Annotation
Rfam assigns this 161-nucleotide RNA sequence from Xenorhabdus innexi to the family "STAXI RNA". It is annotated as a small RNA. NCBI's taxonomy places the organism under Bacteria, Pseudomonadota, Enterobacterales, Morganellaceae, Xenorhabdus. The family's consensus secondary structure is taken from published work.
RNA sequence: CGUUGCUUUAAGCAACCUAUCAAUGCUUCAACAGUCUGAAAGAAGCGCUUUAGGGUGGCUGUAUUAAUCAAUGUUCCUGUAGUCUGAGAGGAGCGCCUUCGGGUGACUACAUUAUCUGCCAGACCUGAAACGGCAGACAGUAAGAUACUCUGGGUAAAUCC
Numbered sequence: 001c002g003u004u005g006c007u008u009u010a011a012g013c014a015a016c017c018u019a020u021c022a023a024u025g026c027u028u029c030a031a032c033a034g035u036c037u038g039a040a041a042g043a044a045g046c047g048c049u050u051u052a053g054g055g056u057g058g059c060u061g062u063a064u065u066a067a068u069c070a071a072u073g074u075u076c077c078u079g080u081a082g083u084c085u086g087a088g089a090g091g092a093g094c095g096c097c098u099u100c101g102g103g104u105g106a107c108u109a110c111a112u113u114a115u116c117u118g119c120c121a122g123a124c125c126u127g128a129a130a131c132g133g134c135a136g137a138c139a140g141u142a143a144g145a146u147a148c149u150c151u152g153g154g155u156a157a158a159u160c161c
Stems, first nucleotide, its partner, number of pairs: 002016006025046005031062006047056003073094005079110006095104003115136001123155003138152003